[Rfam]
RNA sequence: AAUAAGCAUAUAGAGAAGGUAAAGACCUCAGCAACCUGGAAGACUAUCCAAGGUGCUAGAAGAUGUGGCAGAAAUGCAACUAAAUAGUCAGAA
Numbered sequence: 001a002a003u004a005a006g007c008a009u010a011u012a013g014a015g016a017a018g019g020u021a022a023a024g025a026c027c028u029c030a031g032c033a034a035c036c037u038g039g040a041a042g043a044c045u046a047u048c049c050a051a052g053g054u055g056c057u058a059g060a061a062g063a064u065g066u067g068g069c070a071g072a073a074a075u076g077c078a079a080c081u082a083a084a085u086a087g088u089c090a091g092a093a
Base pairs, nucleotide, nucleotide: 006066007065008064009063015029017028018027019026020025030057031056032055035053036052037051038049039048040047042089043088044087045086046085068077069076070075
About this RNA:
SAM-I/IV (S-adenosyl methionine) riboswitch aptamer: a 93-nucleotide RNA sequence. Pairs were carried over by alignment from the consensus structure, which is taken from published work. It is one of the family's seed sequences.